[Rfam]
RNA sequence: GACGGCCCACCGCCGAAUCACCCCAUGGGUGAACCGGGGAACCACCGCCACGUCAACACGGCAGGGGUGAAUCCGCUCCGCGCGGAAGGGCAGUCUCGCCGCCCGAACCCGACAGCUAACCCGGUAGGCGGAACGAGACGAAAG
Number, nucleotide and partner (000 for none) at each position: 001g000002a000003c000004g000005g000006c000007c000008c000009a000010c000011c130012g129013c128014c127015g000016a000017a000018u032019c031020a030021c000022c000023c000024c000025a000026u000027g000028g000029g000030u020031g019032a018033a125034c124035c123036g122037g121038g120039g000040a000041a000042c000043c064044a000045c000046c000047g000048c000049c000050a000051c000052g000053u000054c000055a000056a000057c000058a000059c000060g000061g000062c000063a000064g043065g110066g109067g108068u000069g000070a000071a000072u000073c085074c084075g083076c082077u000078c000079c000080g000081c000082g076083c075084g074085g073086a000087a000088g104089g103090g102091c101092a000093g000094u000095c000096u000097c000098g000099c000100c000101g091102c090103c089104c088105g000106a000107a000108c067109c066110c065111g000112a000113c000114a000115g000116c000117u000118a000119a000120c038121c037122c036123g035124g034125u033126a000127g014128g013129c012130g011131g000132a000133a000134c000135g000136a000137g000138a000139c000140g000141a000142a000143a000144g000
Shown here is a 144-nucleotide sequence from Stackebrandtia albiflava, a member of the family "c-di-AMP riboswitch aptamer (ydaO/yuaA leader)". The pairing is the family consensus, mapped onto this sequence. The organism belongs to Stackebrandtia, within Bacteria.